[Rfam]
RNA sequence: GGAGGUGUACAGGUGCCUGGUGGCCCUCUCGGUCUUCAAAACCGAAGUAGCCGAGUAUCUCGGCUAGGCGGGUUCGAUUCCCGUCCACCUCC
Numbered sequence: 001g002g003a004g005g006u007g008u009a010c011a012g013g014u015g016c017c018u019g020g021u022g023g024c025c026c027u028c029u030c031g032g033u034c035u036u037c038a039a040a041a042c043c044g045a046a047g048u049a050g051c052c053g054a055g056u057a058u059c060u061c062g063g064c065u066a067g068g069c070g071g072g073u074u075c076g077a078u079u080c081c082c083g084u085c086c087a088c089c090u091c092c
Stems, first nucleotide, its partner, number of pairs: 001092007009084001012027002015024003029045005048066005069083004

This 92-nucleotide RNA sequence from Antricoccus suffuscus belongs to the Rfam family "Selenocysteine transfer RNA". Its family is annotated with triplet codon-amino acid adaptor activity in the Gene Ontology. For this family Rfam cites "tRNAscan-SE: a program for improved detection of transfer RNA genes in genomic sequence" (Lowe and Eddy, Nucleic Acids Res, 1997). The organism belongs to Antricoccus, within Bacteria. It scores 79 bits against the family's covariance model. The family's consensus secondary structure is taken from published work.